[Rfam]
RNA sequence: UUCGCGAGUAGAAGCGGUCAGGACAAGGCGUCCGGGACAUUGCUCGGCAA
Numbered sequence: 001u002u003c004g005c006g007a008g009u010a011g012a013a014g015c016g017g018u019c020a021g022g023a024c025a026a027g028g029c030g031u032c033c034g035g036g037a038c039a040u041u042g043c044u045c046g047g048c049a050a
Base pairs, nucleotide, nucleotide: 005046006045007044008043009042010041015035018037019036021033022032023031024030
RNA: Xanthine riboswitch aptamer (NMT1 RNA)